[Rfam]
Nucleotides: 246
Base pairs, nucleotide, nucleotide: 002246003245004244005243006242007241008240009239010238011237014201015200016199017198018197019196022036023035024034025033041232042231043230045229046228047227048226059070060069061068062067072085073084074083075082076081109158110157112155113154114153118151119150120149122146123145124144125143132139133138203216204215205214206213207212
Number, partner (000 for none) and nucleotide at each position: 001000u002246u003245g004244c005243c006242a007241c008240a009239g010238g011237a012000u013000g014201a015200a016199g017198u018197g019196a020000g021000c022036g023035g024034g025033c026000c027000u028000a029000a030000c031000c032000a033025g034024c035023c036022c037000u038000g039000g040000a041232a042231a043230g044000u045229c046228c047227c048226c049000g050000g051000g052000c053000c054000c055000u056000u057000u058000g059070c060069g061068c062067a063000g064000c065000g066000a067062u068061g069060c070059g071000c072085c073084c074083a075082c076081g077000g078000a079000a080000a081076c082075g083074u084073g085072g086000a087000c088000c089000g090000g091000c092000c093000c094000a095000c096000g097000a098000g099000c100000u101000g102000g103000c104000u105000c106000u107000c108000c109158c110157u111000g112155c113154c114153u115000c116000g117000g118151u119150g120149g121000g122146g123145g124144g125143c126000u127000g128000a129000g130000a131000c132139a133138u134000a135000u136000g137000u138133g139132u140000g141000g142000a143125g144124c145123c146122c147000a148000a149120u150119c151118a152000u153114a154113g155112g156000g157110a158109g159000c160000c161000g162000g163000c164000u165000c166000u167000g168000g169000g170000c171000c172000c173000a174000u175000u176000g177000g178000c179000u180000a181000a182000u183000c184000u185000g186000u187000c188000a189000c190000a191000g192000u193000u194000a195000u196019u197018c198017a199016c200015u201014u202000g203216g204215u205214c206213c207212g208000u209000a210000a211000u212207u213206g214205g215204a216203c217000u218000a219000a220000c221000a222000g223000a224000a225000c226048g227047g228046g229045g230043c231042u232041u233000a234000c235000a236000c237011u238010c239009c240008u241007g242006u243005g244004g245003c246002a